RNA sequence: UUGACAUGCAAAUGAUAACGAUUAUUAUUGAGCUCAACCGGUCGAGAGAUCGGUUGGAUAAUCCGAAGGGCCUUAGGUCGGACCUUCAGAUUAUCUCCUCAUCAGGCUAAUCACGGUUUUUGACCCGGCUUUUUGCCGGGUCUUUUUUUU
Numbered sequence: 001u002u003g004a005c006a007u008g009c010a011a012a013u014g015a016u017a018a019c020g021a022u023u024a025u026u027a028u029u030g031a032g033c034u035c036a037a038c039c040g041g042u043c044g045a046g047a048g049a050u051c052g053g054u055u056g057g058a059u060a061a062u063c064c065g066a067a068g069g070g071c072c073u074u075a076g077g078u079c080g081g082a083c084c085u086u087c088a089g090a091u092u093a094u095c096u097c098c099u100c101a102u103c104a105g106g107c108u109a110a111u112c113a114c115g116g117u118u119u120u121u122g123a124c125c126c127g128g129c130u131u132u133u134u135g136c137c138g139g140g141u142c143u144u145u146u147u148u149u150u
Base pairs, nucleotide, nucleotide: 035056036055037054038053039052040051041050042049043048063089065087066086067085068084069083071080097106098105099104122142123141124140125139126138127137128136129135